RNA sequence: GUCAGCAACCCCGACCUGAAGGUACGGGGCUUCUAGCUAGUCUAGAAGUUCUGGAUUUUUAGUUAUAGCUGACCAGACUAAGCGCCCGCUACGUUCACGGCAAAAUGUUAAAAGACCUACCAGCAAAUGCGUAGCUAGUUUGCUGCUCUAGAACCGAACGAUUAAACAUUCCUAUUGGGUUAUAGAAAGUGUCGUUUGGAAAGUACUGACCGCGAACCUUGUCAAAGCUAACAUUAC
Numbered sequence: 001g002u003c004a005g006c007a008a009c010c011c012c013g014a015c016c017u018g019a020a021g022g023u024a025c026g027g028g029g030c031u032u033c034u035a036g037c038u039a040g041u042c043u044a045g046a047a048g049u050u051c052u053g054g055a056u057u058u059u060u061a062g063u064u065a066u067a068g069c070u071g072a073c074c075a076g077a078c079u080a081a082g083c084g085c086c087c088g089c090u091a092c093g094u095u096c097a098c099g100g101c102a103a104a105a106u107g108u109u110a111a112a113a114g115a116c117c118u119a120c121c122a123g124c125a126a127a128u129g130c131g132u133a134g135c136u137a138g139u140u141u142g143c144u145g146c147u148c149u150a151g152a153a154c155c156g157a158a159c160g161a162u163u164a165a166a167c168a169u170u171c172c173u174a175u176u177g178g179g180u181u182a183u184a185g186a187a188a189g190u191g192u193c194g195u196u197u198g199g200a201a202a203g204u205a206c207u208g209a210c211c212g213c214g215a216a217c218c219u220u221g222u223c224a225a226a227g228c229u230a231a232c233a234u235u236a237c
Base pairs, nucleotide, nucleotide: 001073002072003071004070005069006068008066010029011028012026013025015022016021030048031047032046033045034044035043036042076223077222078221080219081090082089083088093217094216095215096214098212107210108209109208110207116151121145122144123143124142125141126140127139128138132230133229134228135227136226154199155198156197157196158195159194160193161192162191166190167189169187170186172185173184174183175182
Dot-bracket structure: ((((((.(.((((.((....))..)).))(((((((.....))))))).................).))))))..(((.((((....)))..((((.(........((((.....(....((((((((...[[[[[.)))))))).....)..(((((((((...((.((.((((......)))))).))))))))))).......)))).).)))).).)))..]]]]].......
This 237-nucleotide RNA from Cyanomargarita calcarea belongs to the Rfam family "HNH endonuclease-associated RNA and ORF (HEARO) RNA". The family's RNA type in Rfam is non-coding RNA gene. On this family, see Weinberg et al., Nature 2009: "Exceptional structured noncoding RNAs revealed by bacterial metagenome analysis". A search with the family's covariance model found it, with a score of 142 bits. NCBI's taxonomy places the organism under Bacteria, Bacillati, Cyanobacteriota, Cyanophyceae, Cyanomargarita calcarea.